[Rfam]
Rfam assigns this 80-nucleotide RNA from Galemys pyrenaicus to the family "Small nucleolar RNA SNORD74". Pairs were carried over by alignment from the consensus structure, which was predicted with PFOLD. The match comes from Rfam's covariance-model search (94 bits). Its Rfam clan is "SNORD74 clan". Lineage of the source: Eukaryota > Chordata > Vertebrata > Eulipotyphla > Galemys.

RNA sequence: GUGCCCUGCCUCUGAUGAAGUCAGCGUUGGUAGGGACAUCUGAGCCUGUUGAUGAAUGCCAACGGUUCUGAUGGCGGUGC
Numbered sequence: 001g002u003g004c005c006c007u008g009c010c011u012c013u014g015a016u017g018a019a020g021u022c023a024g025c026g027u028u029g030g031u032a033g034g035g036a037c038a039u040c041u042g043a044g045c046c047u048g049u050u051g052a053u054g055a056a057u058g059c060c061a062a063c064g065g066u067u068c069u070g071a072u073g074g075c076g077g078u079g080c
Stems, first nucleotide, its partner, number of pairs: 001080005